[Rfam]
RNA sequence: GGAGGCCAAUGAUGAUUUCAGUAUUGCCUACAUUGUCAGAUUUGUCUUCAUCAUGAAAAGAGUAACCUGGAUUCUGAGGCCUCU
Numbered sequence: 001g002g003a004g005g006c007c008a009a010u011g012a013u014g015a016u017u018u019c020a021g022u023a024u025u026g027c028c029u030a031c032a033u034u035g036u037c038a039g040a041u042u043u044g045u046c047u048u049c050a051u052c053a054u055g056a057a058a059a060g061a062g063u064a065a066c067c068u069g070g071a072u073u074c075u076g077a078g079g080c081c082u083c084u
Stems, first nucleotide, its partner, number of pairs: 001084002004081004
This 84-nucleotide RNA sequence from Trema orientale belongs to the Rfam family "Small nucleolar RNA SNORD34". Its Rfam clan is "SNORD34 clan". snoRNA U34 is found in intron 5 of the ribosomal protein L13a gene in humans. A reference for the family is Galardi et al. (2002), "Purified box C/D snoRNPs are able to reproduce site-specific 2'-O-methylation of target RNA in vitro", Mol Cell Biol. A search with the family's covariance model found it, with a score of 44 bits. Gene Ontology terms of the family: RNA processing and nucleolus. The source organism's lineage runs through Eukaryota, Euphyllophyta, Rosales, Cannabaceae and Trema. Rfam classes the family as a C/D-box small nucleolar RNA.